[Rfam]
RNA: Small nucleolar RNA SNORA61
RNA sequence: ACCCUCCUGUUCCCUUUCCCAUUGGAUCUCAACACUGGUCUUUGUGGUCGUAAAGGAGGGAGGGCGUGCUGAAGCUGGCCUCACAGGCUUGUAGACUGGUUAUAAGCAUGUGGGCCAGAUUCAAACAGGG
Numbered sequence: 001a002c003c004c005u006c007c008u009g010u011u012c013c014c015u016u017u018c019c020c021a022u023u024g025g026a027u028c029u030c031a032a033c034a035c036u037g038g039u040c041u042u043u044g045u046g047g048u049c050g051u052a053a054a055g056g057a058g059g060g061a062g063g064g065c066g067u068g069c070u071g072a073a074g075c076u077g078g079c080c081u082c083a084c085a086g087g088c089u090u091g092u093a094g095a096c097u098g099g100u101u102a103u104a105a106g107c108a109u110g111u112g113g114g115c116c117a118g119a120u121u122c123a124a125a126c127a128g129g130g
Stems, first nucleotide, its partner, number of pairs: 003059005019047004025040004075118007090108003